RNase MRP: a 613-nucleotide sequence from Gracilariopsis chorda.
Its Rfam clan is "RNaseP clan".
RNase MRP is an enzymatically active ribonucleoprotein with two distinct roles in eukaryotes. In mitochondria it plays a direct role in the initiation of mitochondrial DNA replication. In the nucleus it is involved in precursor rRNA processing, where it cleaves the internal transcribed spacer 1 between 18S and 5.8S rRNAs.
The family's consensus secondary structure is taken from published work.
Lineage of the source: Eukaryota > Rhodymeniophycidae > Gracilariales > Gracilariaceae > Gracilariopsis.
Rfam links the family to the GO terms rRNA processing, ribonuclease MRP complex and ribonuclease MRP activity.
[Rfam]
RNA sequence: GGGCACGGCAAAGCAUUUCCGUCGGAGCACCACACACGGAAGGGAUCAGCUAUGCUGCAGUCCUUCUCGAGCGCUUACGCUCGCCACUGCUCCGGGUGAAAGUCCCCGGAACCACUUGCAGAAAGUGCGGAUCGUGAAGGUCGAAUCCUCUGGUCGAUCGUGCCGUCGUGGCCGAGAUGGGCUUGCCCGGAGCCGAGGUACGCCGCAGAGCUGCUUGUCAUAAAUCAUCAAUAGUUAUGGAAUGUACGCACAGAUGGUAAGUUCUACAACCUUGUCUGCUUCGAAUCCACGUUCUGUUUGUCACUCGCUAUGAGGAACUUUUUAGCAUAUAUGUACCGCUCCAGACCAAGAUCAUUCCAACACAUUUUACCCAAACUCCCGGAAUGAAAGUGCGGAUAUGCACGUCAGCCUGAGUCUUGACGCACACGAACAGUGGCUGUUGAAUAUGCACCGCGUUUCCCAUUCUAACUGUUUCUUGUUCUGUUCUUUUUGGCGUCUUGUUCAAUUUGAAAUGGUUUCAUUGCCUGCUCCUAGCUUGUGACCGUCGCGACACGAGUCGUCGUAGUCGAUAGACUAACUGCGUAAACAGAAUGGGGCUUACUCUUGCUGUGCC
Numbered sequence: 001g002g003g004c005a006c007g008g009c010a011a012a013g014c015a016u017u018u019c020c021g022u023c024g025g026a027g028c029a030c031c032a033c034a035c036a037c038g039g040a041a042g043g044g045a046u047c048a049g050c051u052a053u054g055c056u057g058c059a060g061u062c063c064u065u066c067u068c069g070a071g072c073g074c075u076u077a078c079g080c081u082c083g084c085c086a087c088u089g090c091u092c093c094g095g096g097u098g099a100a101a102g103u104c105c106c107c108g109g110a111a112c113c114a115c116u117u118g119c120a121g122a123a124a125g126u127g128c129g130g131a132u133c134g135u136g137a138a139g140g141u142c143g144a145a146u147c148c149u150c151u152g153g154u155c156g157a158u159c160g161u162g163c164c165g166u167c168g169u170g171g172c173c174g175a176g177a178u179g180g181g182c183u184u185g186c187c188c189g190g191a192g193c194c195g196a197g198g199u200a201c202g203c204c205g206c207a208g209a210g211c212u213g214c215u216u217g218u219c220a221u222a223a224a225u226c227a228u229c230a231a232u233a234g235u236u237a238u239g240g241a242a243u244g245u246a247c248g249c250a251c252a253g254a255u256g257g258u259a260a261g262u263u264c265u266a267c268a269a270c271c272u273u274g275u276c277u278g279c280u281u282c283g284a285a286u287c288c289a290c291g292u293u294c295u296g297u298u299u300g301u302c303a304c305u306c307g308c309u310a311u312g313a314g315g316a317a318c319u320u321u322u323u324a325g326c327a328u329a330u331a332u333g334u335a336c337c338g339c340u341c342c343a344g345a346c347c348a349a350g351a352u353c354a355u356u357c358c359a360a361c362a363c364a365u366u367u368u369a370c371c372c373a374a375a376c377u378c379c380c381g382g383a384a385u386g387a388a389a390g391u392g393c394g395g396a397u398a399u400g401c402a403c404g405u406c407a408g409c410c411u412g413a414g415u416c417u418u419g420a421c422g423c424a425c426a427c428g429a430a431c432a433g434u435g436g437c438u439g440u441u442g443a444a445u446a447u448g449c450a451c452c453g454c455g456u457u458u459c460c461c462a463u464u465c466u467a468a469c470u471g472u473u474u475c476u477u478g479u480u481c482u483g484u485u486c487u488u489u490u491u492g493g494c495g496u497c498u499u500g501u502u503c504a505a506u507u508u509g510a511a512a513u514g515g516u517u518u519c520a521u522u523g524c525c526u527g528c529u530c531c532u533a534g535c536u537u538g539u540g541a542c543c544g545u546c547g548c549g550a551c552a553c554g555a556g557u558c559g560u561c562g563u564a565g566u567c568g569a570u571a572g573a574c575u576a577a578c579u580g581c582g583u584a585a586a587c588a589g590a591a592u593g594g595g596g597c598u599u600a601c602u603c604u605u606g607c608u609g610u611g612c613c
Base pairs, nucleotide, nucleotide: 002613003612004611005610006609007608008607009606010605011604014244015243016242017241018240019239022095023094024093025092026091027090028089039066040065041064042063043062044061100599101598102597104596105595106594107593117129118128119127120126132143134141135140145215147213148210149209150208151207152206159202160201161200169195170194171193172192179188180187181186246583247582248581249580250579